Background: Shown here is an 87-nucleotide sequence from Gossypium laxum, a member of the family "MIR7486 microRNA precursor family". The match comes from Rfam's covariance-model search (87 bits). NCBI's taxonomy places the organism under Eukaryota, Tracheophyta, Euphyllophyta, Malvoideae, Gossypium. Its family is annotated with RISC complex and miRNA-mediated post-transcriptional gene silencing in the Gene Ontology.
[Rfam]
RNA sequence: CAUGUCAGCGCACCCUGCUGAUGUGGAAGGAAAUUGCGUCCCUAAGGAAGCGAUUUCCUUUCACGUCAGCAGGGCGCGCUGACGUGG
Numbered sequence: 001c002a003u004g005u006c007a008g009c010g011c012a013c014c015c016u017g018c019u020g021a022u023g024u025g026g027a028a029g030g031a032a033a034u035u036g037c038g039u040c041c042c043u044a045a046g047g048a049a050g051c052g053a054u055u056u057c058c059u060u061u062c063a064c065g066u067c068a069g070c071a072g073g074g075c076g077c078g079c080u081g082a083c084g085u086g087g
Stems, first nucleotide, its partner, number of pairs: 001086011013074009023064015040047002